The record is a 75-nucleotide sequence, which matches "ASpks TB sRNA" in Rfam.
RNA sequence: CUUCACCGAGCCCAGCCACAACGGCCGUAGCGGGUCCCGGUCCUGGCCGUAGGUGGCCAGCAGUGCGUCCGCCUC
Numbered sequence: 001c002u003u004c005a006c007c008g009a010g011c012c013c014a015g016c017c018a019c020a021a022c023g024g025c026c027g028u029a030g031c032g033g034g035u036c037c038c039g040g041u042c043c044u045g046g047c048c049g050u051a052g053g054u055g056g057c058c059a060g061c062a063g064u065g066c067g068u069c070c071g072c073c074u075c
Stems, first nucleotide, its partner, number of pairs: 015025003031071003038065002043060003047056003
It is annotated as an antisense RNA. Pairs were carried over by alignment from the consensus structure, which is taken from published work.